[Rfam]
RNA sequence: UCCGGGGGAAGCUCACCGCCGAGGCCACCAACUGGGUGCACCGUCACCCGCGUCCCGCCUCGGGGAAGGUCUGAGGGAAGGGCCGCCCGCGGCUCCAGCAGAGCCCCGCCCGCGACGGGCGGGUGAGCCACCAGCAAGGGGGAGCGCCGCGACGGGGCCGGCCUGGGCAGGAGAAGCCGAGUGGGUGACGCUGGGGUUGGGUAACACCGCCCCACGGAACCGCGGUGGAUGCUCGUGGCCCCGCGGUGCUUUGAGACAGACUCACGGCCGGCGAUCGCUGAGUCCAAUGGGUGAGGUGGGGCACCGCCCUACAACCCAAUUCAGACUACUCUCCCCCGGA
Number, nucleotide and partner (000 for none) at each position: 001u340002c339003c338004g337005g000006g000007g334008g333009a332010a000011g000012c295013u294014c293015a292016c291017c290018g000019c000020c062021g061022a060023g059024g058025c000026c000027a000028c000029c000030a000031a000032c000033u000034g049035g048036g047037u046038g045039c000040a000041c000042c000043g000044u000045c038046a037047c036048c035049c034050g000051c000052g000053u000054c000055c000056c000057g000058c024059c023060u022061c021062g020063g000064g000065g000066a000067a000068g000069g000070u000071c324072u323073g322074a321075g320076g000077g000078a000079a000080g000081g269082g268083c267084c266085g000086c000087c000088c000089g000090c000091g105092g104093c103094u102095c101096c000097a000098g000099c000100a000101g095102a094103g093104c092105c091106c122107c121108g120109c119110c118111c117112g000113c000114g000115a000116c000117g111118g110119g109120c108121g107122g106123g265124u264125g263126a262127g261128c000129c259130a000131c000132c000133a000134g000135c000136a000137a000138g000139g000140g000141g000142g000143a250144g249145c248146g247147c246148c245149g244150c243151g242152a000153c000154g000155g000156g000157g000158c000159c000160g000161g000162c000163c000164u000165g000166g000167g000168c000169a000170g000171g000172a000173g000174a000175a000176g000177c000178c000179g000180a000181g000182u000183g000184g000185g000186u000187g000188a000189c000190g000191c000192u000193g000194g000195g000196g000197u000198u000199g000200g000201g000202u000203a000204a000205c000206a000207c000208c000209g000210c000211c000212c000213c000214a000215c000216g000217g000218a000219a000220c000221c000222g000223c000224g000225g000226u000227g000228g000229a000230u000231g000232c000233u000234c000235g000236u000237g000238g000239c000240c000241c000242c151243g150244c149245g148246g147247u146248g145249c144250u143251u000252u000253g000254a000255g000256a000257c000258a000259g129260a000261c127262u126263c125264a124265c123266g084267g083268c082269c081270g000271g000272c000273g000274a000275u000276c000277g000278c000279u000280g000281a000282g000283u000284c000285c000286a000287a000288u000289g000290g017291g016292u015293g014294a013295g012296g312297u311298g310299g309300g308301g307302c306303a000304c000305c000306g302307c301308c300309c299310u298311a297312c296313a000314a000315c000316c000317c000318a000319a000320u075321u074322c073323a072324g071325a000326c000327u000328a000329c000330u000331c000332u009333c008334c007335c000336c000337c004338g003339g002340a001